RNA sequence: GGACCGUCUCCGCUGAGUGCGGCCGAGAGGCCGCAGCCGGGGACCCACUGGAACCACUGGGGUGAAUCGGUCCGCACGGAUGUUCCGCAGAGGACGUUCCGCACGAACCGUAGGGCGACCUUCCGACAGCCCGAACCCGACAGCUAACCCGGUAAGCGGUUUACGGAAGGACUU
Numbered sequence: 001g002g003a004c005c006g007u008c009u010c011c012g013c014u015g016a017g018u019g020c021g022g023c024c025g026a027g028a029g030g031c032c033g034c035a036g037c038c039g040g041g042g043a044c045c046c047a048c049u050g051g052a053a054c055c056a057c058u059g060g061g062g063u064g065a066a067u068c069g070g071u072c073c074g075c076a077c078g079g080a081u082g083u084u085c086c087g088c089a090g091a092g093g094a095c096g097u098u099c100c101g102c103a104c105g106a107a108c109c110g111u112a113g114g115g116c117g118a119c120c121u122u123c124c125g126a127c128a129g130c131c132c133g134a135a136c137c138c139g140a141c142a143g144c145u146a147a148c149c150c151g152g153u154a155a156g157c158g159g160u161u162u163a164c165g166g167a168a169g170g171a172c173u174u
Stems, first nucleotide, its partner, number of pairs: 011158004018035007036153006046059002060138003068110004113132004

Rfam assigns this 174-nucleotide RNA sequence from Streptomyces sp. So13.3 to the family "c-di-AMP riboswitch aptamer (ydaO/yuaA leader)".